[Rfam]
RNA sequence: UAGGGCCAAUGAUGACCAACUUAUAUUUUGCCUACAUUGCUUGAUUAGCCUUAUGAUAAAAAUAUCAAGUUGUUCUGAGGCUUUG
Numbered sequence: 001u002a003g004g005g006c007c008a009a010u011g012a013u014g015a016c017c018a019a020c021u022u023a024u025a026u027u028u029u030g031c032c033u034a035c036a037u038u039g040c041u042u043g044a045u046u047a048g049c050c051u052u053a054u055g056a057u058a059a060a061a062a063u064a065u066c067a068a069g070u071u072g073u074u075c076u077g078a079g080g081c082u083u084u085g
Base pairs, nucleotide, nucleotide: 001085002084004082005081006080007079
Dot-bracket structure: ((.((((.......................................................................)))).))